Enterobacterial sRNA STnc410: a 158-nucleotide RNA sequence from Escherichia coli.
Nucleotides: 158
Base pairs, nucleotide, nucleotide: 002029003028004027005026006025007024010021012019036073037072039070040069044066045065086098087097088096
Number, partner (000 for none) and nucleotide at each position: 001000a002029g003028g004027a005026u006025a007024a008000a009000u010021u011000g012019u013000u014000c015000a016000a017000u018000a019012a020000c021010g022000g023000a024007u025006u026005a027004u028003c029002c030000c031000c032000g033000c034000u035000g036073a037072c038000g039070a040069a041000a042000g043000c044066g045065c046000c047000a048000u049000u050000u051000u052000c053000g054000a055000c056000c057000a058000u059000c060000g061000u062000c063000a064000c065045g066044c067000c068000u069040u070039u071000u072037g073036u074000c075000u076000g077000c078000a079000g080000a081000a082000a083000a084000u085000u086098a087097a088096g089000g090000c091000a092000g093000u094000a095000c096088c097087u098086u099000a100000a101000u102000u103000u104000a105000a106000g107000c108000g109000u110000c111000a112000g113000g114000u115000g116000g117000a118000u119000g120000u121000u122000u123000u124000u125000g126000c127000u128000c129000u130000u131000a132000u133000u134000u135000c136000g137000a138000u139000c140000a141000a142000u143000g144000a145000a146000u147000a148000a149000a150000c151000a152000g153000g154000a155000a156000a157000a158000c
The base pairs follow the family's consensus structure, which was predicted with CMfinder. Rfam's curators put it in the seed alignment. NCBI's taxonomy places the organism under Bacteria, Pseudomonadati, Enterobacterales, Enterobacteriaceae, Escherichia coli.